[Rfam]
RNA sequence: CAAUGUGCCCGGGGUCGGUGAAAGUCCGAACCGGCGGUGAUAGUCCGCGACCCACGAUCCACACGGUGAGUGGUUGAACCGGUGGAAUUCCGGUACCGACGGUGAGAGUCCGGAUGGGAGAGCACGUCA
Numbered sequence: 001c002a003a004u005g006u007g008c009c010c011g012g013g014g015u016c017g018g019u020g021a022a023a024g025u026c027c028g029a030a031c032c033g034g035c036g037g038u039g040a041u042a043g044u045c046c047g048c049g050a051c052c053c054a055c056g057a058u059c060c061a062c063a064c065g066g067u068g069a070g071u072g073g074u075u076g077a078a079c080c081g082g083u084g085g086a087a088u089u090c091c092g093g094u095a096c097c098g099a100c101g102g103u104g105a106g107a108g109u110c111c112g113g114a115u116g117g118g119a120g121a122g123c124a125c126g127u128c129a
Stems, first nucleotide, its partner, number of pairs: 003127006010120001016028003030109002032098002034048004043096002052073002078094005100112003
FMN riboswitch aptamer (RFN element): a 129-nucleotide RNA from Propionibacterium sp. oral taxon 192. A search with the family's covariance model found it, with a score of 98 bits.